[Rfam]
RNA sequence: GGGUGGCUGGGGUUCCUGGUGAUGCGAUUUUUUUUCAACACUGAAAAUCACAUUGCCAGGGAUUUCCAAUUACU
Numbered sequence: 001g002g003g004u005g006g007c008u009g010g011g012g013u014u015c016c017u018g019g020u021g022a023u024g025c026g027a028u029u030u031u032u033u034u035u036c037a038a039c040a041c042u043g044a045a046a047a048u049c050a051c052a053u054u055g056c057c058a059g060g061g062a063u064u065u066c067c068a069a070u071u072a073c074u
Base pairs, nucleotide, nucleotide: 002074004072005071006070010067011066012063013062014061015060016059017058018057019056020055021054022053023052024051026049027048028047029046030045
Record summary:
The family of this 74-nucleotide sequence from Microcaecilia unicolor is "mir-23 microRNA precursor family". On this family, see Chen et al., Genes Dev 2005: "The developmental miRNA profiles of zebrafish as determined by small RNA cloning". The family has 83 seed sequences and 1,403 matches in Rfam 15.1. Lineage of the source: Eukaryota > Eumetazoa > Deuterostomia > Sarcopterygii > Microcaecilia. Rfam links the family to the GO terms RISC complex and gene silencing by miRNA.